[Rfam]
RNA sequence: GGCCACCUUCGGGGGGCUAUCACAUAGGGUCCCCAUGGACCCCCAAGCUUACGGAAGACAGAAA
Numbered sequence: 001g002g003c004c005a006c007c008u009u010c011g012g013g014g015g016g017c018u019a020u021c022a023c024a025u026a027g028g029g030u031c032c033c034c035a036u037g038g039a040c041c042c043c044c045a046a047g048c049u050u051a052c053g054g055a056a057g058a059c060a061g062a063a064a
Stems, first nucleotide, its partner, number of pairs: 001018004006014003027042006
RNA: L2-Alphaproteobacteria ribosomal protein leader